A member of the RNA family "SAM riboswitch aptamer (S box leader)" from Pelodictyon luteolum, 135 nucleotides long. Rfam links the family to the GO term regulation of gene expression. A search with the family's covariance model found it, with a score of 60 bits. NCBI's taxonomy places the organism under Bacteria, Chlorobiota, Chlorobiaceae, Pelodictyon, Pelodictyon luteolum.
RNA sequence: CAGUCAUCAAGAAAGGCUGAGGGAAUAGACCCGAUGAUGCCUUGACAACCGAUCCCGCAAGGGACACGGUGCCGCAUUCUACCUCCGGCCACGUAUUCAUGAUCGAUUUGUUGCCGAGACGAGGAAAGAUGAGUG
Numbered sequence: 001c002a003g004u005c006a007u008c009a010a011g012a013a014a015g016g017c018u019g020a021g022g023g024a025a026u027a028g029a030c031c032c033g034a035u036g037a038u039g040c041c042u043u044g045a046c047a048a049c050c051g052a053u054c055c056c057g058c059a060a061g062g063g064a065c066a067c068g069g070u071g072c073c074g075c076a077u078u079c080u081a082c083c084u085c086c087g088g089c090c091a092c093g094u095a096u097u098c099a100u101g102a103u104c105g106a107u108u109u110g111u112u113g114c115c116g117a118g119a120c121g122a123g124g125a126a127a128g129a130u131g132a133g134u135g
Stems, first nucleotide, its partner, number of pairs: 001135002004132005013043005021032003026081004044073001046071002049069002051065001053063002077127001082124004